[Rfam]
Shown here is a 166-nucleotide RNA from Dorea sp. AF36-15AT, a member of the family "Lysine riboswitch aptamer". Rfam describes the family as follows. Riboswitches are metabolite binding domains within certain messenger RNAs that serve as precision sensors for their corresponding targets. Allosteric rearrangement of mRNA structure is mediated by ligand binding, and this results in modulation of gene expression.
RNA sequence: GUCUUGGAUAGAGGCGCAGGUUUCAUGAGUAUCAUAUGACGAUAGUGUGGCAUACUGUUGUAUGAGAAAGGGGAGACUGCCGAAGAUGGAUUUAAGCCAAAGGAUUUGUCUGGGCUGCAGGAGAAUAUCUUGCGGACUGUCACGAAAGUGGAGCGCUAUCAUGAUG
Numbered sequence: 001g002u003c004u005u006g007g008a009u010a011g012a013g014g015c016g017c018a019g020g021u022u023u024c025a026u027g028a029g030u031a032u033c034a035u036a037u038g039a040c041g042a043u044a045g046u047g048u049g050g051c052a053u054a055c056u057g058u059u060g061u062a063u064g065a066g067a068a069a070g071g072g073g074a075g076a077c078u079g080c081c082g083a084a085g086a087u088g089g090a091u092u093u094a095a096g097c098c099a100a101a102g103g104a105u106u107u108g109u110c111u112g113g114g115c116u117g118c119a120g121g122a123g124a125a126u127a128u129c130u131u132g133c134g135g136a137c138u139g140u141c142a143c144g145a146a147a148g149u150g151g152a153g154c155g156c157u158a159u160c161a162u163g164a165u166g
Base pairs, nucleotide, nucleotide: 007160008159009158010157011156016080017079018078019077021075022074023073024072032065033064034063035062036061037060038059039058084111085110086109087108088107089106090105091104092103093102112138113137115135116134117133118132119131120130121129122128140151141150142149143148
Dot-bracket structure: ......(((((....((((.((((.......((((((((..................))))))))......)))).))))...((((((((((........))))))))))((.((((((((.....)))))))).)).((((....))))....)))))......